The record is an 80-nucleotide sequence from Xenopus laevis, which matches "let-7 microRNA precursor family" in Rfam. This family represents the microRNAs (miRNA) let-7 and mir-98. let-7 was identified from a study of developmental timing in C. elegans, and was later shown to be part of a much larger class of non-coding RNAs termed miRNAs. A reference for the family is Rougvie (2001), "Control of developmental timing in animals", Nat Rev Genet. Lineage of the source: Eukaryota > Teleostomi > Tetrapoda > Xenopus > Xenopus. Pairs were carried over by alignment from the consensus structure, which was predicted with RNAalifold.

RNA sequence: UUGGGGUGAGGUAGUAGGUUGUUUAGUUGUGGGUUGCACCCCGACAUUUGGAGAACUAUACAAUCUACUGUCUUUCCUGA
Numbered sequence: 001u002u003g004g005g006g007u008g009a010g011g012u013a014g015u016a017g018g019u020u021g022u023u024u025a026g027u028u029g030u031g032g033g034u035u036g037c038a039c040c041c042c043g044a045c046a047u048u049u050g051g052a053g054a055a056c057u058a059u060a061c062a063a064u065c066u067a068c069u070g071u072c073u074u075u076c077c078u079g080a
Base pairs, nucleotide, nucleotide: 001080002079003078004077005076006075008074009073010072011071012070013069014068015067016066017065018064019063020062021061022060024058025057026056027055031042032041033040045050